[Rfam]
RNA sequence: CAUAGGCAUUCAGCGUUCUUUGACACAAAGCUGAACGCACGCAGUCCUGCUUGCCAAAGCGGAUGACGCUUAUCAUGUCGUCAUCGGUCUGGAAGCGCUCCAGGGCAUCGGCCAGACCGGAUUUCACGCCGCGCGGCAAAUCGCACUGGGUCACAUCACCAUUGACGAUAACCGUGACAUUUUCACCCAAACGGGUC
Number, nucleotide and partner (000 for none) at each position: 001c000002a000003u053004a052005g051006g050007c049008a048009u000010u000011c000012a000013g000014c041015g040016u039017u000018c037019u000020u000021u000022g000023a000024c000025a000026c000027a000028a000029a000030g000031c000032u000033g000034a000035a000036c000037g018038c000039a016040c015041g014042c000043a000044g000045u000046c000047c000048u008049g007050c006051u005052u004053g003054c000055c000056a000057a000058a000059g000060c000061g078062g000063a076064u075065g074066a073067c000068g000069c000070u000071u000072a000073u066074c065075a064076u063077g000078u061079c000080g000081u000082c000083a000084u114085c000086g113087g112088u111089c110090u000091g000092g000093a000094a000095g000096c105097g000098c103099u000100c000101c000102a000103g098104g000105g096106c000107a000108u000109c000110g089111g088112c087113c086114a084115g000116a196117c195118c194119g000120g192121a000122u191123u190124u189125c000126a000127c000128g137129c136130c135131g000132c000133g000134c000135g130136g129137c128138a000139a000140a169141u168142c167143g166144c000145a000146c000147u161148g160149g159150g000151u000152c000153a000154c000155a000156u000157c000158a000159c149160c148161a147162u000163u000164g000165a000166c143167g142168a141169u140170a000171a000172c000173c000174g186175u185176g184177a183178c000179a000180u000181u000182u000183u177184c176185a175186c174187c000188c000189a124190a123191a122192c120193g000194g118195g117196u116197c000
RNA: Yersinia sRNA 251